[Rfam]
A member of the RNA family "mir-3660 microRNA precursor family" from Eschrichtius robustus, 72 nucleotides long. A search with the family's covariance model found it, with a score of 82 bits. Rfam links the family to the GO terms RISC complex and miRNA-mediated post-transcriptional gene silencing. The source organism's lineage runs through Eukaryota, Opisthokonta, Tetrapoda, Whippomorpha and Eschrichtius.
RNA sequence: AUUAAAAUGCUAUUCUGUCAUUGUAAUAGUUCAUAUGGGCACUGACAGGAGAGCAUUUUAAUUUUGUCAAGU
Dot-bracket structure: .((((((((((.((((((((.(((.(((.....)))..))).)))))))).))))))))))...........
Numbered sequence: 001a002u003u004a005a006a007a008u009g010c011u012a013u014u015c016u017g018u019c020a021u022u023g024u025a026a027u028a029g030u031u032c033a034u035a036u037g038g039g040c041a042c043u044g045a046c047a048g049g050a051g052a053g054c055a056u057u058u059u060a061a062u063u064u065u066g067u068c069a070a071g072u
Stems, first nucleotide, its partner, number of pairs: 002061010013050008022041003026036003